The record is a 74-nucleotide RNA sequence from Phenylobacterium glaciei, which matches "Makes More Granules Regulator RNA (mmgR)" in Rfam. Taxonomically the source falls in Phenylobacterium (Bacteria, Pseudomonadota, Alphaproteobacteria, Caulobacterales). It scores 53 bits against the family's covariance model. On this family, see Ceizel Borella et al., Microbiology 2018: "Expression of the small regulatory RNA gene mmgR is regulated negatively by AniA and positively by NtrC in Sinorhizobium meliloti 2011". Gene Ontology terms of the family: response to nitrogen compound, protein binding and DNA-templated transcription, termination. The base pairs follow the family's consensus structure.
RNA sequence: CGCCUCUGCCCUUCCUGGGCGUUUCCUCCCUAAUGAACUGCCGGGCCCUCGGGUCCGGCUUUUUUUUGGCCGGA
Numbered sequence: 001c002g003c004c005u006c007u008g009c010c011c012u013u014c015c016u017g018g019g020c021g022u023u024u025c026c027u028c029c030c031u032a033a034u035g036a037a038c039u040g041c042c043g044g045g046c047c048c049u050c051g052g053g054u055c056c057g058g059c060u061u062u063u064u065u066u067u068g069g070c071c072g073g074a
Stems, first nucleotide, its partner, number of pairs: 008020004040059008